Background: MIR2655 microRNA precursor family: a 279-nucleotide sequence from Medicago truncatula. Its family is annotated with miRNA-mediated post-transcriptional gene silencing and RISC complex in the Gene Ontology. The match comes from Rfam's covariance-model search (170 bits).
[Rfam]
RNA sequence: GGCUUAAUUACUCUUUUGAUCCCUUAAUUUAUUUAUUGGUUUCGUAUUGGUUUCGUUUUGGUUCCUUAACUAUUAAAAGUUUCGUUUUGGUCCCUUAACUCUAAUACAUUCAUCCUAACAUAAAGGACCAAAGUGGUUGAGAGAGGAUGAGUUAAGGGACCAAAACAAAACCAAAAAGUAAGUUAAAGGACCAAAACGAAACUUUUAAUAGUUAAGGGACCAAAAUGAAACCAAAAAGUAAGUUAAGGGACCAAAACGAAACUUUUAAUAGUUAAGGUA
Numbered sequence: 001g002g003c004u005u006a007a008u009u010a011c012u013c014u015u016u017u018g019a020u021c022c023c024u025u026a027a028u029u030u031a032u033u034u035a036u037u038g039g040u041u042u043c044g045u046a047u048u049g050g051u052u053u054c055g056u057u058u059u060g061g062u063u064c065c066u067u068a069a070c071u072a073u074u075a076a077a078a079g080u081u082u083c084g085u086u087u088u089g090g091u092c093c094c095u096u097a098a099c100u101c102u103a104a105u106a107c108a109u110u111c112a113u114c115c116u117a118a119c120a121u122a123a124a125g126g127a128c129c130a131a132a133g134u135g136g137u138u139g140a141g142a143g144a145g146g147a148u149g150a151g152u153u154a155a156g157g158g159a160c161c162a163a164a165a166c167a168a169a170a171c172c173a174a175a176a177a178g179u180a181a182g183u184u185a186a187a188g189g190a191c192c193a194a195a196a197c198g199a200a201a202c203u204u205u206u207a208a209u210a211g212u213u214a215a216g217g218g219a220c221c222a223a224a225a226u227g228a229a230a231c232c233a234a235a236a237a238g239u240a241a242g243u244u245a246a247g248g249g250a251c252c253a254a255a256a257c258g259a260a261a262c263u264u265u266u267a268a269u270a271g272u273u274a275a276g277g278u279a
Stems, first nucleotide, its partner, number of pairs: 003276006014256003018252001020250001022248013036234010